Rfam assigns this 102-nucleotide RNA sequence from Rhinopithecus roxellana to the family "Y RNA". Taxonomically the source falls in Rhinopithecus (Eukaryota, Bilateria, Gnathostomata, Sarcopterygii).

RNA sequence: GGCUCGUCCCAGUGCAGUGGUGUUUACGGCUAGUUGAUCACAACCAGUUACAGAUUUUUAUGUUCCUUCUCCAAUCCCACUGUUUCACUUGACUAACCUUUA
Numbered sequence: 001g002g003c004u005c006g007u008c009c010c011a012g013u014g015c016a017g018u019g020g021u022g023u024u025u026a027c028g029g030c031u032a033g034u035u036g037a038u039c040a041c042a043a044c045c046a047g048u049u050a051c052a053g054a055u056u057u058u059u060a061u062g063u064u065c066c067u068u069c070u071c072c073a074a075u076c077c078c079a080c081u082g083u084u085u086c087a088c089u090u091g092a093c094u095a096a097c098c099u100u101u102a
Stems, first nucleotide, its partner, number of pairs: 001098002004095001006093003011089001014086001016081005022076001032064003037059001
Y RNAs are components of the Ro ribonucleoprotein particle (Ro RNP), in association with Ro60 and La proteins. The Y RNAs and Ro60 and La proteins are well conserved, but the function of the Ro RNP is not known. In humans the RNA component can be one of four small RNAs -- hY1, hY3, hY4 and hY5.